[Rfam]
RNA sequence: CGCACAGAGGAUGAUUACUAGGGACUUAAUACUGAAAUCUGAUGUCUCUUCAUUGGCUGAUGUGC
Numbered sequence: 001c002g003c004a005c006a007g008a009g010g011a012u013g014a015u016u017a018c019u020a021g022g023g024a025c026u027u028a029a030u031a032c033u034g035a036a037a038u039c040u041g042a043u044g045u046c047u048c049u050u051c052a053u054u055g056g057c058u059g060a061u062g063u064g065c
Stems, first nucleotide, its partner, number of pairs: 002065005
RNA: Small nucleolar RNA SNORD82
Organism: Sphenodon punctatus